[Rfam]
RNA sequence: CGUGUGCGGGUCUGUGGUUGCAAGUCGAUGCCAGCCGUAGGCGAAACGACCCACGUAAGGCAACCCUUGGUUGCUGAGCAUGGUGCGGCUUAGGGGUAAGUCCUGCCCGCCGAUCGGCCGACCCUCGGCCCGGGGCGGAGAAGGGGUCAAGCGGGCCACCGCCGCAGUCCCUGUGGGGCUGCGGUGCCGGUGUUGGGUCGUGUACCGCCGCCGGCGGUCCGUGAGCCCCUCGCAGGCGAGUGUGGGGUCAAAGCCAGGUCAGCCGCACGCG
Numbered sequence: 001c002g003u004g005u006g007c008g009g010g011u012c013u014g015u016g017g018u019u020g021c022a023a024g025u026c027g028a029u030g031c032c033a034g035c036c037g038u039a040g041g042c043g044a045a046a047c048g049a050c051c052c053a054c055g056u057a058a059g060g061c062a063a064c065c066c067u068u069g070g071u072u073g074c075u076g077a078g079c080a081u082g083g084u085g086c087g088g089c090u091u092a093g094g095g096g097u098a099a100g101u102c103c104u105g106c107c108c109g110c111c112g113a114u115c116g117g118c119c120g121a122c123c124c125u126c127g128g129c130c131c132g133g134g135g136c137g138g139a140g141a142a143g144g145g146g147u148c149a150a151g152c153g154g155g156c157c158a159c160c161g162c163c164g165c166a167g168u169c170c171c172u173g174u175g176g177g178g179c180u181g182c183g184g185u186g187c188c189g190g191u192g193u194u195g196g197g198u199c200g201u202g203u204a205c206c207g208c209c210g211c212c213g214g215c216g217g218u219c220c221g222u223g224a225g226c227c228c229c230u231c232g233c234a235g236g237c238g239a240g241u242g243u244g245g246g247g248u249c250a251a252a253g254c255c256a257g258g259u260c261a262g263c264c265g266c267a268c269g270c271g
Base pairs, nucleotide, nucleotide: 001271002270003269004268005267006266007265008264009263012262013261014260015256016255017254018253019252028243029242030241031041033090034089035088036087037086038085039084050083051082058075059074062071064069081250102236103235104234105233106232107138108137109136110135111134142230143229144228145227151222152221153220154219155218156217157216

Shown here is a 271-nucleotide sequence, a member of the family "raiA RNA". It is one of the family's seed sequences. By type it is a riboswitch.